Record summary:
Rfam assigns this 89-nucleotide RNA from Panthera leo to the family "let-7 microRNA precursor family". The family is grouped with related families in Rfam's "let-7 microRNA precursor clan". Rfam's curators write: This family represents the microRNAs (miRNA) let-7 and mir-98. let-7 was identified from a study of developmental timing in C. elegans, and was later shown to be part of a much larger class of non-coding RNAs termed miRNAs.
RNA sequence: CCAAGGUGAGGUAGUAAGUUGUAUUGUUGUGGGGUAGGGAUUUUAGGCCCCAAUUAGAAGAUAACUAUACAACUUACUACUUUCCCUGG
Numbered sequence: 001c002c003a004a005g006g007u008g009a010g011g012u013a014g015u016a017a018g019u020u021g022u023a024u025u026g027u028u029g030u031g032g033g034g035u036a037g038g039g040a041u042u043u044u045a046g047g048c049c050c051c052a053a054u055u056a057g058a059a060g061a062u063a064a065c066u067a068u069a070c071a072a073c074u075u076a077c078u079a080c081u082u083u084c085c086c087u088g089g
Stems, first nucleotide, its partner, number of pairs: 001089003005085002008083017026065002032051003054059001